[Rfam]
RNA sequence: AGGUGAUGCCUCCUUCCCGUUAUCGAUGGAGGUACUCGGUCAUGCUGUGGGAUGAAUAUCCUUAGACGCAUUAUGUCGUCAAUAGUGUGAUGUGAGGGUGGGUUAGAUGCCUG
Numbered sequence: 001a002g003g004u005g006a007u008g009c010c011u012c013c014u015u016c017c018c019g020u021u022a023u024c025g026a027u028g029g030a031g032g033u034a035c036u037c038g039g040u041c042a043u044g045c046u047g048u049g050g051g052a053u054g055a056a057u058a059u060c061c062u063u064a065g066a067c068g069c070a071u072u073a074u075g076u077c078g079u080c081a082a083u084a085g086u087g088u089g090a091u092g093u094g095a096g097g098g099u100g101g102g103u104u105a106g107a108u109g110c111c112u113g
Stems, first nucleotide, its partner, number of pairs: 002018002007034007035096004039091008049062005065080004099113005
Shown here is a 113-nucleotide sequence from Peribacillus loiseleuriae, a member of the family "epsC RNA". Lineage of the source: Bacteria > Bacillati > Bacilli > Caryophanales > Peribacillus. Rfam classes the family as a cis-regulatory element.